A member of the RNA family "mir-2774 microRNA precursor family" from Bombyx mori, 67 nucleotides long. Pairs were carried over by alignment from the consensus structure, which was predicted with RNAalifold. The literature on the family includes a 2010 paper in BMC Genomics by Liu et al., "MicroRNAs of Bombyx mori identified by Solexa sequencing". Rfam links the family to the GO terms RISC complex and miRNA-mediated post-transcriptional gene silencing. The source organism's lineage runs through Eukaryota, Altocrustacea, Neolepidoptera, Bombycidae and Bombyx.

[Rfam]
RNA sequence: ACAACAUUCGGGCCGUUGGCUUAUGGGGCAAUAUUCAAGGCUCGAUGGAAGAUCUUCCCUUUGUCGU
Numbered sequence: 001a002c003a004a005c006a007u008u009c010g011g012g013c014c015g016u017u018g019g020c021u022u023a024u025g026g027g028g029c030a031a032u033a034u035u036c037a038a039g040g041c042u043c044g045a046u047g048g049a050a051g052a053u054c055u056u057c058c059c060u061u062u063g064u065c066g067u
Stems, first nucleotide, its partner, number of pairs: 004064003010058003015053003021048004026043004